[Rfam]
RNA sequence: GUCGCUUCUCGGUUCUCUGAGCUAAGAUCAAGUGUAUUAUCUGUUCUUUGCAGUGUGAUUUUCCGCAAUGGUCCCCAAUUUGGGACCAACAAAAUUGGCUGUAUUUUUCCAGUCAGGACGGGUGCUGCGAGCCUGCUCAAUCCAGUCUACGGGUCGGCCUUGUAUUGCAUUACCUCGAGGAUUGGCCCAUUAAUG
Numbered sequence: 001g002u003c004g005c006u007u008c009u010c011g012g013u014u015c016u017c018u019g020a021g022c023u024a025a026g027a028u029c030a031a032g033u034g035u036a037u038u039a040u041c042u043g044u045u046c047u048u049u050g051c052a053g054u055g056u057g058a059u060u061u062u063c064c065g066c067a068a069u070g071g072u073c074c075c076c077a078a079u080u081u082g083g084g085a086c087c088a089a090c091a092a093a094a095u096u097g098g099c100u101g102u103a104u105u106u107u108u109c110c111a112g113u114c115a116g117g118a119c120g121g122g123u124g125c126u127g128c129g130a131g132c133c134u135g136c137u138c139a140a141u142c143c144a145g146u147c148u149a150c151g152g153g154u155c156g157g158c159c160u161u162g163u164a165u166u167g168c169a170u171u172a173c174c175u176c177g178a179g180g181a182u183u184g185g186c187c188c189a190u191u192a193a194u195g
Base pairs, nucleotide, nucleotide: 007027008026009025011023012022013021014020048068049067050066051065053063070087071086072085073084074083075082077081116148117147118146119145121143122142129138130137131136151188152187153186154185155184156183158180159179160178161177162176
Shown here is a 195-nucleotide RNA from Taenia asiatica, a member of the family "U2 spliceosomal RNA".
By type it is a spliceosomal small nuclear RNA.
The organism belongs to Taenia, within Eukaryota.
The family has 208 seed sequences and 71,512 matches in Rfam 15.1.
About the family: U2 is a small nuclear RNA (snRNA) component of the spliceosome (involved in pre-mRNA splicing). Complementary binding between U2 snRNA (in an area lying towards the 5' end but 3' to hairpin I) and the branchpoint sequence (BPS) of the intron results the bulging out of an unpaired adenosine, on the BPS, which initiates a nucleophilic attack at the intronic 5' splice site, thus starting the first of two transesterification reactions that mediate splicing.
On this family, see Zwieb, Nucleic Acids Res 1997: "The uRNA database".